The record is a 38-nucleotide RNA, which matches "S4-Flavobacteria ribosomal protein leader" in Rfam. The base pairs follow the family's consensus structure, which is taken from published work. The sequence is in the family's curated seed alignment.

[Rfam]
RNA sequence: CAUUGCGAAGGAUAAGAUUAAGACCUUAAUUUUCAAUG
Numbered sequence: 001c002a003u004u005g006c007g008a009a010g011g012a013u014a015a016g017a018u019u020a021a022g023a024c025c026u027u028a029a030u031u032u033u034c035a036a037u038g
Base pairs, nucleotide, nucleotide: 001038002037003036004035005034007032008027009026010025011024
For this family Rfam cites "Discovery of 20 novel ribosomal leader candidates in bacteria and archaea" (Eckert and Weinberg, BMC Microbiol, 2020). It is annotated as a cis-regulatory leader.